[Rfam]
RNA sequence: GCUGGGAGUUGUGGCGUGCUCCUGUAAUCCAGCUACUUGGAGGCCGAGAGAUGGAACGGUUUGAGAACGGGAGACCUACCUGCAGGGGUACCAUGUCGAUCGGAUGUCCGCACUAAGCCCGGCAUCAAUAUGGGUAUCUUUGGGGAACCAGAGAGGUCCAGGUUGUCUAACGCGAGACGAACCGGCCCAGGGUGGAAACACAGCAGGCAAAAGUCUCCGUGUCGUGCAGUAGUGGGAUCGCAUCUGUGAAUGGGCGUUUGUUGGUAGCCCGUCCGAUAGAACCGAACCAUCUUUUUU
Numbered sequence: 001g002c003u004g005g006g007a008g009u010u011g012u013g014g015c016g017u018g019c020u021c022c023u024g025u026a027a028u029c030c031a032g033c034u035a036c037u038u039g040g041a042g043g044c045c046g047a048g049a050g051a052u053g054g055a056a057c058g059g060u061u062u063g064a065g066a067a068c069g070g071g072a073g074a075c076c077u078a079c080c081u082g083c084a085g086g087g088g089u090a091c092c093a094u095g096u097c098g099a100u101c102g103g104a105u106g107u108c109c110g111c112a113c114u115a116a117g118c119c120c121g122g123c124a125u126c127a128a129u130a131u132g133g134g135u136a137u138c139u140u141u142g143g144g145g146a147a148c149c150a151g152a153g154a155g156g157u158c159c160a161g162g163u164u165g166u167c168u169a170a171c172g173c174g175a176g177a178c179g180a181a182c183c184g185g186c187c188c189a190g191g192g193u194g195g196a197a198a199c200a201c202a203g204c205a206g207g208c209a210a211a212a213g214u215c216u217c218c219g220u221g222u223c224g225u226g227c228a229g230u231a232g233u234g235g236g237a238u239c240g241c242a243u244c245u246g247u248g249a250a251u252g253g254g255c256g257u258u259u260g261u262u263g264g265u266a267g268c269c270c271g272u273c274c275g276a277u278a279g280a281a282c283c284g285a286a287c288c289a290u291c292u293u294u295u296u297u
Stems, first nucleotide, its partner, number of pairs: 001044003004023006028041003046295009057284006065274001067272005076267005082261005088255001091253004096248001101246007108236002111234005117227002120224006126165004131160005137154007166172001174217005185208003192201003
RNA: Metazoan signal recognition particle RNA
Organism: Pomacea canaliculata